[Rfam]
RNA sequence: GAGACAACCUUAUGGGGCAGGACUAGCUUCAGUGGGGCUUUGGUGCUCAUUGAGUCUGCCUCUUGCGUGUGUUGCU
Numbered sequence: 001g002a003g004a005c006a007a008c009c010u011u012a013u014g015g016g017g018c019a020g021g022a023c024u025a026g027c028u029u030c031a032g033u034g035g036g037g038c039u040u041u042g043g044u045g046c047u048c049a050u051u052g053a054g055u056c057u058g059c060c061u062c063u064u065g066c067g068u069g070u071g072u073u074g075c076u
Stems, first nucleotide, its partner, number of pairs: 001075001003073004009067001011065002014062006021056003029053008037044002
The record is a 76-nucleotide RNA sequence from Myotis brandtii, which matches "mir-9229 microRNA precursor family" in Rfam.
The match comes from Rfam's covariance-model search (77 bits).
The source organism's lineage runs through Eukaryota, Metazoa, Eumetazoa, Vespertilionidae and Myotis.